[Rfam]
RNA sequence: AGGUGAGGUAGAGGCGCGGGUUGUCAAGAGUAUCAUAAAGCACAUGGGGUACAAGUGCUUUAUGGGAAAGGGACACUCGCCGAAGCCCGUUUUGACUUCCCCGGUAAAUGCGGGCUGGGACUGCACCAAACAGGUGUAGUACUGUCAUUUGAGAAUUCCCUGGUUCUCAAAUGGAGCACUAUCUCACUA
Dot-bracket structure: .....((((((....((((((.(((.......((((((((.................))))))))......)))))))))...(((((((.((.(.........).)).)))))))((.((((((((.....)))))))).)).(((((((((((........)))))))))))....)))))).....
This 189-nucleotide RNA from a Syntrophomonadaceae bacterium belongs to the Rfam family "Lysine riboswitch aptamer".
A search with the family's covariance model found it, with a score of 105 bits.
NCBI's taxonomy places the organism under Bacteria, Bacillati, Clostridia, Eubacteriales, Syntrophomonadaceae.
Riboswitches are metabolite binding domains within certain messenger RNAs that serve as precision sensors for their corresponding targets.